[Rfam]
RNA: c-di-AMP riboswitch aptamer (ydaO/yuaA leader)
Organism: Peribacillus muralis
RNA sequence: UAAGUUAAUUCGCUUAAUCUUAUUCAAGAACGGGGGACCCAAAUUUGUGGAUAUUAUCCGCUAGGGGUGAAUUCAGAAAUGAAAGGGCAUUUGUGUUUCCAAUUCCUAACCCGACAGCUAACCUCGUCAGCGUCUUUAAGGGAACAU
Numbered sequence: 001u002a003a004g005u006u007a008a009u010u011c012g013c014u015u016a017a018u019c020u021u022a023u024u025c026a027a028g029a030a031c032g033g034g035g036g037a038c039c040c041a042a043a044u045u046u047g048u049g050g051a052u053a054u055u056a057u058c059c060g061c062u063a064g065g066g067g068u069g070a071a072u073u074c075a076g077a078a079a080u081g082a083a084a085g086g087g088c089a090u091u092u093g094u095g096u097u098u099c100c101a102a103u104u105c106c107u108a109a110c111c112c113g114a115c116a117g118c119u120a121a122c123c124u125c126g127u128c129a130g131c132g133u134c135u136u137u138a139a140g141g142g143a144a145c146a147u
Base pairs, nucleotide, nucleotide: 011132012131013130014129018029019028020027030127031126032125033124034123035122040064065112066111067110073082074081075080085106086105087104